[Rfam]
Rfam assigns this 108-nucleotide sequence from Secundilactobacillus mixtipabuli to the family "TPP riboswitch aptamer (THI element)". Its family is annotated with thiamine pyrophosphate binding in the Gene Ontology.

RNA sequence: AAACAACACGAGGGGUGUCCCACUAUUUCUUUGGGGCUGAGAUGUGCUUGCACUAUCCCUUUGAACCUGUAAGUUCAGACUUGCGAAGGAACGUGUUCAAUUCGGGCC
Numbered sequence: 001a002a003a004c005a006a007c008a009c010g011a012g013g014g015g016u017g018u019c020c021c022a023c024u025a026u027u028u029c030u031u032u033g034g035g036g037c038u039g040a041g042a043u044g045u046g047c048u049u050g051c052a053c054u055a056u057c058c059c060u061u062u063g064a065a066c067c068u069g070u071a072a073g074u075u076c077a078g079a080c081u082u083g084c085g086a087a088g089g090a091a092c093g094u095g096u097u098c099a100a101u102u103c104g105g106g107c108c
Stems, first nucleotide, its partner, number of pairs: 006096005011060004017037005044053003066089003070083004